[Rfam]
RNA sequence: UUGGGGUGCAUUGUAGUUGCAUUGCAUAUUUAUUUGAAGUGCAGUGUUUCUUCAGUGCAUCCUAA
Numbered sequence: 001u002u003g004g005g006g007u008g009c010a011u012u013g014u015a016g017u018u019g020c021a022u023u024g025c026a027u028a029u030u031u032a033u034u035u036g037a038a039g040u041g042c043a044g045u046g047u048u049u050c051u052u053c054a055g056u057g058c059a060u061c062c063u064a065a
Stems, first nucleotide, its partner, number of pairs: 001065004006061001007059007015051002019047001021045007
A member of the RNA family "mir-33 microRNA precursor family" from Callosobruchus maculatus, 65 nucleotides long. It scores 65 bits against the family's covariance model. The literature on the family includes a 2010 paper in Mol Hum Reprod by Ahn et al., "MicroRNA transcriptome in the newborn mouse ovaries determined by massive parallel sequencing". Its family is annotated with gene silencing by miRNA and RISC complex in the Gene Ontology. The base pairs follow the family's consensus structure, which was predicted with PFOLD.